[Rfam]
RNA sequence: ACAAUGGCUCUUUUAAGAGCCACCAAACAGUCUUACACACAAAACAG
Dot-bracket structure: .....((((((....))))))..........................

The record is a 47-nucleotide RNA sequence from Nothobranchius furzeri, which matches "Histone 3' UTR stem-loop" in Rfam.
A reference for the family is Williams and Marzluff (1995), "The sequence of the stem and flanking sequences at the 3' end of histone mRNA are critical determinants for the binding of the stem-loop binding protein", Nucleic Acids Res.
Rfam classes the family as a cis-regulatory element.
The family has 50 seed sequences and 44,596 matches in Rfam 15.1.
It scores 36 bits against the family's covariance model.